[Rfam]
RNA sequence: AUACGAAAUAAAACUACUGCGUCCUAUUCACUGCAUCAUUAGAUUUUAUAAGAUUGAUGAAUGGAGGGGAAAAGGAUAGCUAGAAUAAAUGUUCGACAACGACCUCAUACCCUGGAAUAUCUUUUAAUGAUGUUUAAUGGUAACUGCGUUUGCGAUAUAUUA
Numbered sequence: 001a002u003a004c005g006a007a008a009u010a011a012a013a014c015u016a017c018u019g020c021g022u023c024c025u026a027u028u029c030a031c032u033g034c035a036u037c038a039u040u041a042g043a044u045u046u047u048a049u050a051a052g053a054u055u056g057a058u059g060a061a062u063g064g065a066g067g068g069g070a071a072a073a074g075g076a077u078a079g080c081u082a083g084a085a086u087a088a089a090u091g092u093u094c095g096a097c098a099a100c101g102a103c104c105u106c107a108u109a110c111c112c113u114g115g116a117a118u119a120u121c122u123u124u125u126a127a128u129g130a131u132g133u134u135u136a137a138u139g140g141u142a143a144c145u146g147c148g149u150u151u152g153c154g155a156u157a158u159a160u161u162a
Base pairs, nucleotide, nucleotide: 019080020079022076023075031066032065034063035062037059038058039057040056041055094154095153099149100148101147110140111139115135116134117133118132119131120130122129
RNA: Small nucleolar RNA snR8
Organism: Waltiozyma mucosa